[Rfam]
RNA sequence: UUUUAAGAUAGAGGUGCAGUGUUCAAAAGUAUCUACUGGAAUCCGGGCAGGAUAAUGAAGGUAAGAGAAAGGGAAGGCUGCCGAAGGAAAGACUAUAGCCCAUUGUCAAUCCUGGUGUUACCGAUAAUAUUGAUAACACUGUCAUUAAGUUUUCACCUGAUGAAGUGCUAUCGGAAUU
Numbered sequence: 001u002u003u004u005a006a007g008a009u010a011g012a013g014g015u016g017c018a019g020u021g022u023u024c025a026a027a028a029g030u031a032u033c034u035a036c037u038g039g040a041a042u043c044c045g046g047g048c049a050g051g052a053u054a055a056u057g058a059a060g061g062u063a064a065g066a067g068a069a070a071g072g073g074a075a076g077g078c079u080g081c082c083g084a085a086g087g088a089a090a091g092a093c094u095a096u097a098g099c100c101c102a103u104u105g106u107c108a109a110u111c112c113u114g115g116u117g118u119u120a121c122c123g124a125u126a127a128u129a130u131u132g133a134u135a136a137c138a139c140u141g142u143c144a145u146u147a148a149g150u151u152u153u154c155a156c157c158u159g160a161u162g163a164a165g166u167g168c169u170a171u172c173g174g175a176a177u178u
Stems, first nucleotide, its partner, number of pairs: 007172005016081005022075003032066002034063004085113004091107003095103002114140007122132003142163006

The family of this 178-nucleotide sequence from Ilyobacter polytropus is "Lysine riboswitch aptamer". The organism belongs to Ilyobacter polytropus, within Bacteria. Rfam describes the family as follows. Riboswitches are metabolite binding domains within certain messenger RNAs that serve as precision sensors for their corresponding targets. Pairs were carried over by alignment from the consensus structure, which is taken from published work.